[Rfam]
RNA sequence: UCGUCAGUGAGGUACAUCCUUACCUGUUACUCCAGUAAUGGAGUAUCAGAAAAUGAUGAAUGGAGGUUUAUGAGAUAUGAUUAUUAUCUCUGGCUUGUGGAGAACAGCAACACUCCACAAGACCCAUUCUGAU
Numbered sequence: 001u002c003g004u005c006a007g008u009g010a011g012g013u014a015c016a017u018c019c020u021u022a023c024c025u026g027u028u029a030c031u032c033c034a035g036u037a038a039u040g041g042a043g044u045a046u047c048a049g050a051a052a053a054u055g056a057u058g059a060a061u062g063g064a065g066g067u068u069u070a071u072g073a074g075a076u077a078u079g080a081u082u083a084u085u086a087u088c089u090c091u092g093g094c095u096u097g098u099g100g101a102g103a104a105c106a107g108c109a110a111c112a113c114u115c116c117a118c119a120a121g122a123c124c125c126a127u128u129c130u131g132a133u
Stems, first nucleotide, its partner, number of pairs: 024049003028045006072090002075087003078083001094121008

U8 small nucleolar RNA: a 133-nucleotide RNA from Myripristis murdjan. Gene Ontology terms of the family: RNA processing and nucleolus. Taxonomically the source falls in Myripristis (Eukaryota, Teleostomi, Teleostei, Holocentridae). Pairs were carried over by alignment from the consensus structure, which is taken from published work. The family's RNA type in Rfam is C/D-box small nucleolar RNA.